[Rfam]
RNA sequence: GGUAGUAGCAAAUAUUCAAGUGAGAUCCUUGAAGACUGAAGUGGAGAAGGGUUCCACGUGAACAGCAGUUGAAUGUGGGUCAGCCGAUCCUAAGGCACCGGCUAAUGCCGUCACACACUACGGAUGAAGACUUUGCUGUGCUUGCGCAGUUUGUCCAUCCGGUUGCCGAAAGGGAAGUGGGUUAACAUUCCCACGCCAGGCCAGGGAAAUGACGGUUCGCAAGAACUGUUUCGCGCGGUAACGCAAAUGAACUCGCAGACGUCGUGUGGAGUCCGAGCCAGAGUUCUCUUUUCUGGUUUAGGGCGUGCGUGCCUGGAAGUGGCUCAGCCUGAGAUAGGGAUGUUGCGCCCGUAAAGCACCGCGGUUCCUGUGGUGUCUCGUGCGCUCCACACGGCCCUUGAAAAUGCGAGGGAAGCGAUAUGAAUCUCCUGCCUGAUCGUACCGAUAUCCGCAGCAGGUCUCCAAGGUGAACAGCCUCUAGUCGA
Numbered sequence: 001g002g003u004a005g006u007a008g009c010a011a012a013u014a015u016u017c018a019a020g021u022g023a024g025a026u027c028c029u030u031g032a033a034g035a036c037u038g039a040a041g042u043g044g045a046g047a048a049g050g051g052u053u054c055c056a057c058g059u060g061a062a063c064a065g066c067a068g069u070u071g072a073a074u075g076u077g078g079g080u081c082a083g084c085c086g087a088u089c090c091u092a093a094g095g096c097a098c099c100g101g102c103u104a105a106u107g108c109c110g111u112c113a114c115a116c117a118c119u120a121c122g123g124a125u126g127a128a129g130a131c132u133u134u135g136c137u138g139u140g141c142u143u144g145c146g147c148a149g150u151u152u153g154u155c156c157a158u159c160c161g162g163u164u165g166c167c168g169a170a171a172g173g174g175a176a177g178u179g180g181g182u183u184a185a186c187a188u189u190c191c192c193a194c195g196c197c198a199g200g201c202c203a204g205g206g207a208a209a210u211g212a213c214g215g216u217u218c219g220c221a222a223g224a225a226c227u228g229u230u231u232c233g234c235g236c237g238g239u240a241a242c243g244c245a246a247a248u249g250a251a252c253u254c255g256c257a258g259a260c261g262u263c264g265u266g267u268g269g270a271g272u273c274c275g276a277g278c279c280a281g282a283g284u285u286c287u288c289u290u291u292u293c294u295g296g297u298u299u300a301g302g303g304c305g306u307g308c309g310u311g312c313c314u315g316g317a318a319g320u321g322g323c324u325c326a327g328c329c330u331g332a333g334a335u336a337g338g339g340a341u342g343u344u345g346c347g348c349c350c351g352u353a354a355a356g357c358a359c360c361g362c363g364g365u366u367c368c369u370g371u372g373g374u375g376u377c378u379c380g381u382g383c384g385c386u387c388c389a390c391a392c393g394g395c396c397c398u399u400g401a402a403a404a405u406g407c408g409a410g411g412g413a414a415g416c417g418a419u420a421u422g423a424a425u426c427u428c429c430u431g432c433c434u435g436a437u438c439g440u441a442c443c444g445a446u447a448u449c450c451g452c453a454g455c456a457g458g459u460c461u462c463c464a465a466g467g468u469g470a471a472c473a474g475c476c477u478c479u480a481g482u483c484g485a
Stems, first nucleotide, its partner, number of pairs: 015033006034483004043463004049443002054078006063071002085439003089173002094167002097111002100109003122160005177194005197435004221430001223428002225425001235244003252410006261395004266390007274380003277297006301350005310340001312338004321329002357375007449458002465477004
RNA: Eukaryotic large subunit ribosomal RNA, nucleotides 1647 to 2131